[Rfam]
RNA sequence: CGUUCGCCUGUUGGGGGCAGAUGAAGUGGAUGUGGGUGUCGAUGCCGCCCGCGGUGAUGAUCUUACCCUCGCCGGCGACGACGUCGGUGCAGCUACCGACGAUCAUGUUGGGCGUCACGCCGUCCAUGACGUCCGGGUUGCCCGCCUUUCCGAUUCCAGUGAUCAUGCCGUUCUUGACGCCAAUGUCGGCCUUGUAGAUGCCGGACCAGUCGACGAUGAGCGCGUUCGUGACGACCAUGUCGAGCGAUUCCGAGUCGGGCCGGCCCGUCGCCUGGCCCAUGCCUUCUCUCAACG
Numbered sequence: 001c002g003u004u005c006g007c008c009u010g011u012u013g014g015g016g017g018c019a020g021a022u023g024a025a026g027u028g029g030a031u032g033u034g035g036g037u038g039u040c041g042a043u044g045c046c047g048c049c050c051g052c053g054g055u056g057a058u059g060a061u062c063u064u065a066c067c068c069u070c071g072c073c074g075g076c077g078a079c080g081a082c083g084u085c086g087g088u089g090c091a092g093c094u095a096c097c098g099a100c101g102a103u104c105a106u107g108u109u110g111g112g113c114g115u116c117a118c119g120c121c122g123u124c125c126a127u128g129a130c131g132u133c134c135g136g137g138u139u140g141c142c143c144g145c146c147u148u149u150c151c152g153a154u155u156c157c158a159g160u161g162a163u164c165a166u167g168c169c170g171u172u173c174u175u176g177a178c179g180c181c182a183a184u185g186u187c188g189g190c191c192u193u194g195u196a197g198a199u200g201c202c203g204g205a206c207c208a209g210u211c212g213a214c215g216a217u218g219a220g221c222g223c224g225u226u227c228g229u230g231a232c233g234a235c236c237a238u239g240u241c242g243a244g245c246g247a248u249u250c251c252g253a254g255u256c257g258g259g260c261c262g263g264c265c266c267g268u269c270g271c272c273u274g275g276c277c278c279a280u281g282c283c284u285u286c287u288c289u290c291a292a293c294g
Base pairs, nucleotide, nucleotide: 001294002293003292006288009161010160011159012158013157014156015073016072019069020068028049029048031047032046034045036043037042054066055065056064074151075150078147080145089141090140091139092138093137096136097135098133099132100131106128107127109126110125111124112123113122114120115119167276168275169274170273174270176269177268178267179266180263181262189223190222192220193219204211226258227257228256233250234249237248238247
RNA: 5' ureB small RNA
Organism: Colletotrichum karsti